RNA sequence: UCGUAACAAAUAGCGCCAGAACUCGCAAGCGGGACGGAAAUGUAGGCCUUUAAGGCUGCUACUACGCGGUGAGUUGACGAGGUGAAGGUGUUCGAAACAUUCGGCGGGGACCUUCCGGCACGAGGAGUGCCGUUAAGUUGGAGAGCAAAAUCGUUCGGGCGACCGGGCAGACAAGUAUCCAACAUCUAUUAAC
Numbered sequence: 001u002c003g004u005a006a007c008a009a010a011u012a013g014c015g016c017c018a019g020a021a022c023u024c025g026c027a028a029g030c031g032g033g034a035c036g037g038a039a040a041u042g043u044a045g046g047c048c049u050u051u052a053a054g055g056c057u058g059c060u061a062c063u064a065c066g067c068g069g070u071g072a073g074u075u076g077a078c079g080a081g082g083u084g085a086a087g088g089u090g091u092u093c094g095a096a097a098c099a100u101u102c103g104g105c106g107g108g109g110a111c112c113u114u115c116c117g118g119c120a121c122g123a124g125g126a127g128u129g130c131c132g133u134u135a136a137g138u139u140g141g142a143g144a145g146c147a148a149a150a151u152c153g154u155u156c157g158g159g160c161g162a163c164c165g166g167g168c169a170g171a172c173a174a175g176u177a178u179c180c181a182a183c184a185u186c187u188a189u190u191a192a193c
Base pairs, nucleotide, nucleotide: 020075021074022073023072024071025070026069084115085114086113087112088111092104093103094102095101116132117131118130119129120128121127137183138182139181140180141179142178151169153168154167155166156165157164158163
RNA: glmS glucosamine-6-phosphate activated ribozyme aptamer